The family of this 100-nucleotide RNA from Streptomyces laurentii is "Glycine riboswitch aptamer".

[Rfam]
RNA sequence: GCAGAUCUGAAAAGCGGGACGCGGCGUCGCGUCCCCACCCAAGGUGCAAGCCGGGGACGUCCUCGGUGAACCUCUCAGGUUCCAUGACAGAUGGGGAGGA
Numbered sequence: 001g002c003a004g005a006u007c008u009g010a011a012a013a014g015c016g017g018g019a020c021g022c023g024g025c026g027u028c029g030c031g032u033c034c035c036c037a038c039c040c041a042a043g044g045u046g047c048a049a050g051c052c053g054g055g056g057a058c059g060u061c062c063u064c065g066g067u068g069a070a071c072c073u074c075u076c077a078g079g080u081u082c083c084a085u086g087a088c089a090g091a092u093g094g095g096g097a098g099g100a
Base pairs, nucleotide, nucleotide: 002095005092006091007090008089009088016035017034018033019032020031021030022029037080038079039078041075044074046072050067051066052065053064054063055062056061